[Rfam]
RNA sequence: UUGCGCAGCCCUCCUUGGGCGUUUCCUCCCUUGACUUGGCCGCUGGGUGACCGGCGGCCUUUUUUUCAUUCGAU
Numbered sequence: 001u002u003g004c005g006c007a008g009c010c011c012u013c014c015u016u017g018g019g020c021g022u023u024u025c026c027u028c029c030c031u032u033g034a035c036u037u038g039g040c041c042g043c044u045g046g047g048u049g050a051c052c053g054g055c056g057g058c059c060u061u062u063u064u065u066u067c068a069u070u071c072g073a074u
Stems, first nucleotide, its partner, number of pairs: 008020004038059009

Makes More Granules Regulator RNA (mmgR): a 74-nucleotide RNA from Methylocystis parvus. It scores 66 bits against the family's covariance model. For this family Rfam cites "Regulation of Polyhydroxybutyrate Accumulation in Sinorhizobium meliloti by the Trans-Encoded Small RNA MmgR" (Lagares et al., J Bacteriol, 2017). By type it is a small RNA. SuhB later renamed mmgR (makes more granules regulator) was a putative non-coding RNA found multiple times in the Agrobacterium tumefaciens genome and related alpha-proteobacteria. Other non-coding RNAs uncovered in the same analysis include: speF, ybhL, metA, and serC.Several studies inSinorhizobium meliloti showed that suhB element is indeed a non-coding RNA:firstly it was detected on Northern blot and called Sm8RNA, secondly in an RNAseq study referred to as SmelC689.The mutant phenotype's (strain lacking the small RNA) cytoplasm contains higher content of polyhydroxybutyrate (PBH)storage granules than wild type strain. The sRNA is required to limit the PBH intracellular accumulation when the nitrogen-fixing Sinorhizobium meliloti is under condition of surplus carbon in relation to nitrogen. Pairs were carried over by alignment from the consensus structure.